[Rfam]
RNA sequence: UCUUAUAUUUGGCAAACCUGCUGAAAAGCAGGGACGCAAAGCUAUGGGUCUACAAUCGCGACGCGAUCAUGAUUGCCAAGCCGCCGUG
Numbered sequence: 001u002c003u004u005a006u007a008u009u010u011g012g013c014a015a016a017c018c019u020g021c022u023g024a025a026a027a028g029c030a031g032g033g034a035c036g037c038a039a040a041g042c043u044a045u046g047g048g049u050c051u052a053c054a055a056u057c058g059c060g061a062c063g064c065g066a067u068c069a070u071g072a073u074u075g076c077c078a079a080g081c082c083g084c085c086g087u088g
Stems, first nucleotide, its partner, number of pairs: 012037002017032006041081003045078003048073003055067004

The family of this 88-nucleotide sequence from Sporomusaceae bacterium FL31 is "c-di-GMP-I riboswitch aptamer". The base pairs follow the family's consensus structure, which is taken from published work. The family is grouped with related families in Rfam's "c-di-GMP_I riboswitch clan". Rfam's curators write: GEMM was predicted in a large-scale screen for bacterial structured RNA regulatory elements.